[Rfam]
RNA sequence: UCUACCUAAGCAACGUAAACCCUACCUACUUUUACGUCCUUGCGACCCUAUAGUCGCGCCAGUGUGAAUAAGUAUAUCAAAAACAUU
Numbered sequence: 001u002c003u004a005c006c007u008a009a010g011c012a013a014c015g016u017a018a019a020c021c022c023u024a025c026c027u028a029c030u031u032u033u034a035c036g037u038c039c040u041u042g043c044g045a046c047c048c049u050a051u052a053g054u055c056g057c058g059c060c061a062g063u064g065u066g067a068a069u070a071a072g073u074a075u076a077u078c079a080a081a082a083a084c085a086u087u
Stems, first nucleotide, its partner, number of pairs: 035066002039062002041058006

Description: Rfam assigns this 87-nucleotide RNA from Sporosarcina sp. Marseille-Q4063 to the family "BsrC". The organism belongs to Sporosarcina, within Bacteria. By type it is a small RNA. From the family's description: The 301 nucleotide sequence from Kouji Nakamura has been trimmed to a highly conserved ~85 nucleotide long core to form this family. Pairs were carried over by alignment from the consensus structure, which was predicted with CMfinder. A reference for the family is Saito et al. (2008), "Novel small RNA-encoding genes in the intergenic regions of Bacillus subtilis", Gene.